[Rfam]
RNA sequence: GAGCACCACCUUUACUCGGAUCGUCCGGCACGUUCCUGCCGGUGAAGGAAAGGCAA
Number, nucleotide and partner (000 for none) at each position: 001g000002a000003g000004c000005a000006c000007c000008a000009c048010c047011u046012u045013u044014a043015c000016u000017c000018g000019g000020a000021u000022c000023g000024u000025c042026c041027g040028g039029c038030a037031c000032g000033u000034u000035c000036c000037u030038g029039c028040c027041g026042g025043u014044g013045a012046a011047g010048g009049a000050a000051a000052g000053g000054c000055a000056a000